[Rfam]
RNA sequence: GUGCUUUAGGGAUGAACAAGUCCCUCGUAGUCAAUAACCAUCUAAACCACUCAGUGGCCUUUUUGGUGGCUUAUCCAUCAUUAUGGGAUGGAUGGUAUAUUG
Number, nucleotide and partner (000 for none) at each position: 001g000002u000003g000004c000005u000006u000007u000008a000009g000010g000011g000012a000013u000014g000015a000016a000017c000018a000019a000020g000021u000022c000023c000024c000025u000026c000027g000028u000029a000030g000031u000032c000033a000034a000035u000036a000037a096038c095039c094040a093041u092042c091043u000044a000045a000046a000047c000048c000049a000050c000051u000052c000053a000054g078055u077056g076057g075058c000059c000060u000061u000062u000063u000064u000065g000066g000067u000068g000069g000070c000071u000072u000073a000074u000075c057076c056077a055078u054079c000080a000081u000082u000083a000084u000085g000086g000087g000088a000089u000090g000091g042092a041093u040094g039095g038096u037097a000098u000099a000100u000101u000102g000